[Rfam]
Nucleotides: 087
Stems, first nucleotide, its partner, number of pairs: 003057001005055008015045002017075005028041004066080003
Number, partner (000 for none) and nucleotide at each position: 001000c002000c003057c004000g005055c006054g007053g008052g009051c010050c011049g012048u013000g014000a015045c016044u017075g018074g019073c020072g021071c022000g023000c024000u025000g026000g027000g028041a029040u030039g031038g032000g033000a034000c035000c036000a037000a038031c039030c040029a041028u042000c043000g044016g045015g046000g047000a048012g049011c050010g051009g052008c053007c054006c055005g056000a057003g058000a059000g060000c061000a062000a063000c064000g065000u066080g067079c068078c069000g070000u071021g072020c073019g074018c075017c076000u077000g078068g079067g080066c081000c082000a083000u084000c085000c086000g087000u

A member of the RNA family "ZMP/ZTP riboswitch aptamer (pfl RNA motif)" from Streptomyces pseudogriseolus, 87 nucleotides long.
The base pairs follow the family's consensus structure, which is taken from published work.